[Rfam]
Shown here is a 143-nucleotide RNA from Mus spicilegus, a member of the family "Small nucleolar RNA SNORA48".
From the family's description: The snoRNA ACA 48 has been identified to guide pseudouridylation of the residue U3797 in the 28S rRNA subunit.
The family has 24 seed sequences and 2,109 matches in Rfam 15.1.
Its family is annotated with nucleolus and RNA processing in the Gene Ontology.
RNA sequence: AGCCCUGCCUGGCCCCCUGGAAACACCUUAUUGGUGGUGGUACUCUCAUAUCAGUCAGGGGCAGAGCAGAUGGCAGUCCUUUGUUCAUCCUAGCUUGAUGUCUGGCUUGGUGGCCAAAGCUGUUUUAUGCUUAGGAGACAUCA
Numbered sequence: 001a002g003c004c005c006u007g008c009c010u011g012g013c014c015c016c017c018u019g020g021a022a023a024c025a026c027c028u029u030a031u032u033g034g035u036g037g038u039g040g041u042a043c044u045c046u047c048a049u050a051u052c053a054g055u056c057a058g059g060g061g062c063a064g065a066g067c068a069g070a071u072g073g074c075a076g077u078c079c080u081u082u083g084u085u086c087a088u089c090c091u092a093g094c095u096u097g098a099u100g101u102c103u104g105g106c107u108u109g110g111u112g113g114c115c116a117a118a119g120c121u122g123u124u125u126u127a128u129g130c131u132u133a134g135g136a137g138a139c140a141u142c143a
Stems, first nucleotide, its partner, number of pairs: 003060005009054004019046002022041001024039004082138001084136003097131001099129001103127003108122002111119001